A member of the RNA family "Plastid-rpl16 group II-D1 intron", 47 nucleotides long. The literature on the family includes a 2023 paper in Plant Commun by Richter et al., "Retrograde signaling in plants: A critical review focusing on the GUN pathway and beyond". The family's consensus secondary structure was predicted with LocARNA. Rfam's curators write: Plastid-rpl16 is a non-coding RNA (ncRNA) recognised in plastids. It was recognised in and intronic region of a ribosome rpl16 gene.
RNA sequence: AAGAGCCUCGAGUCAAUAGAGACUGAGAAGAUUGACUUGGGAACGAA
Dot-bracket structure: ......((.((((((((.............)))))))).))......
Numbered sequence: 001a002a003g004a005g006c007c008u009c010g011a012g013u014c015a016a017u018a019g020a021g022a023c024u025g026a027g028a029a030g031a032u033u034g035a036c037u038u039g040g041g042a043a044c045g046a047a
Stems, first nucleotide, its partner, number of pairs: 007041002010038008